The family of this 91-nucleotide RNA sequence from Photobacterium damselae is "Selenocysteine transfer RNA". Rfam links the family to the GO term triplet codon-amino acid adaptor activity. Taxonomically the source falls in Photobacterium damselae subsp. damselae (Bacteria, Gammaproteobacteria, Vibrionaceae, Photobacterium damselae).
[Rfam]
RNA sequence: GGAAGAACGGCGUAUCCGGUGAUGCGUCCGGAUUUCAAAUCCGGGUAGGGCUGCCAGCAGUCCUGGGUAGGUUCGACUCCUAUGUUCUUCC
Numbered sequence: 001g002g003a004a005g006a007a008c009g010g011c012g013u014a015u016c017c018g019g020u021g022a023u024g025c026g027u028c029c030g031g032a033u034u035u036c037a038a039a040u041c042c043g044g045g046u047a048g049g050g051c052u053g054c055c056a057g058c059a060g061u062c063c064u065g066g067g068u069a070g071g072u073u074c075g076a077c078u079c080c081u082a083u084g085u086u087c088u089u090c091c
Stems, first nucleotide, its partner, number of pairs: 001091009011026006027045006047064005068082004